[Rfam]
A member of the RNA family "MIR8024 microRNA precursor family" from Solanum commersonii, 86 nucleotides long.
Lineage of the source: Eukaryota > Pentapetalae > Solanoideae > Solaneae > Solanum.
RNA sequence: UUAGAGGAUUGGGAGAUGUUAACUUGCAUACUUGGAGGAUUUGAAGACUUCACCUUGCAUAUUUAGAGGAUCUGAAAACUAUAACU
Numbered sequence: 001u002u003a004g005a006g007g008a009u010u011g012g013g014a015g016a017u018g019u020u021a022a023c024u025u026g027c028a029u030a031c032u033u034g035g036a037g038g039a040u041u042u043g044a045a046g047a048c049u050u051c052a053c054c055u056u057g058c059a060u061a062u063u064u065a066g067a068g069g070a071u072c073u074g075a076a077a078a079c080u081a082u083a084a085c086u
Base pairs, nucleotide, nucleotide: 001084002083003082005080006079009076010075012073013072014071017068019066020065021064025059026058027057028056033052034051035050036049037048